[Rfam]
RNA: Caenorhabditis snoRNA ceN92
Organism: Caenorhabditis remanei
RNA sequence: UGGCACAUAAACACGGAGGAUUUUGAAGUCAUAUUUUUCUAGUCGUAGUGUGCUAUAAAAACCGUUCUUCUGCCACACGGGUACUGGCCUACAAGCUGUAUCGGUUCCAAAGUUGUUCGAACAAUU
Numbered sequence: 001u002g003g004c005a006c007a008u009a010a011a012c013a014c015g016g017a018g019g020a021u022u023u024u025g026a027a028g029u030c031a032u033a034u035u036u037u038u039c040u041a042g043u044c045g046u047a048g049u050g051u052g053c054u055a056u057a058a059a060a061a062c063c064g065u066u067c068u069u070c071u072g073c074c075a076c077a078c079g080g081g082u083a084c085u086g087g088c089c090u091a092c093a094a095g096c097u098g099u100a101u102c103g104g105u106u107c108c109a110a111a112g113u114u115g116u117u118c119g120a121a122c123a124a125u126u
Base pairs, nucleotide, nucleotide: 002054003053004052005051006050007049008048015040016039017038018037019036020035022033024031025030070112071111077105078104080102081101082100083099084098086097087096088095